[Rfam]
RNA sequence: UCUGUCUGAUGCCCUUUUGAUAUUGCACUGCUUCUGACAGUGAGACACAGUAGUACAAUGUGAAAAGGGCCUCAGGCAGA
Numbered sequence: 001u002c003u004g005u006c007u008g009a010u011g012c013c014c015u016u017u018u019g020a021u022a023u024u025g026c027a028c029u030g031c032u033u034c035u036g037a038c039a040g041u042g043a044g045a046c047a048c049a050g051u052a053g054u055a056c057a058a059u060g061u062g063a064a065a066a067g068g069g070c071c072u073c074a075g076g077c078a079g080a
Stems, first nucleotide, its partner, number of pairs: 001080002004077006011070008021060005027054003
Shown here is an 80-nucleotide sequence from Microcaecilia unicolor, a member of the family "mir-130 microRNA precursor family". Its family is annotated with RISC complex and miRNA-mediated post-transcriptional gene silencing in the Gene Ontology. A reference for the family is Lagos-Quintana et al. (2002), "Identification of tissue-specific microRNAs from mouse", Curr Biol.